[Rfam]
Nucleotides: 100
Stems, first nucleotide, its partner, number of pairs: 058069004
Number, partner (000 for none) and nucleotide at each position: 001000u002000c003000a004000a005000c006000a007000g008000g009000a010000u011000g012000a013000a014000g015000u016000u017000u018000u019000u020000u021000u022000a023000u024000c025000a026000a027000u028000a029000u030000a031000u032000g033000u034000u035000u036000u037000u038000u039000c040000u041000g042000g043000c044000a045000u046000c047000u048000c049000u050000a051000a052000u053000g054000u055000u056000a057000g058069a059068a060067c061066c062000u063000c064000a065000c066061g067060g068059u069058u070000c071000g072000a073000u074000g075000a076000a077000u078000a079000g080000a081000a082000c083000u084000c085000u086000u087000g088000a089000c090000a091000c092000u093000a094000u095000c096000u097000g098000a099000u100000g
Rfam assigns this 100-nucleotide RNA from Sungouiella intermedia to the family "Small nucleolar RNA snR48". The base pairs follow the family's consensus structure, which was predicted with ILM. Lineage of the source: Eukaryota > Fungi > Pichiomycetes > Serinales > Sungouiella. Its Rfam clan is "SNORD60 clan". A reference for the family is Lowe and Eddy (1999), "A computational screen for methylation guide snoRNAs in yeast", Science.